[Rfam]
RNA sequence: UUAUAUUUAAUGCAUUAUUGUGCACAGAAAUUUAUUUGGGUCUUUAGGCCUGCCCUCUGUGAUGUUUUUUGACUUUAAUUUAGUGGCAUGGUUUGGCAACAAAACG
Numbered sequence: 001u002u003a004u005a006u007u008u009a010a011u012g013c014a015u016u017a018u019u020g021u022g023c024a025c026a027g028a029a030a031u032u033u034a035u036u037u038g039g040g041u042c043u044u045u046a047g048g049c050c051u052g053c054c055c056u057c058u059g060u061g062a063u064g065u066u067u068u069u070u071g072a073c074u075u076u077a078a079u080u081u082a083g084u085g086g087c088a089u090g091g092u093u094u095g096g097c098a099a100c101a102a103a104a105c106g
Base pairs, nucleotide, nucleotide: 012023013022014021015020038089040087041086042085048079052073054071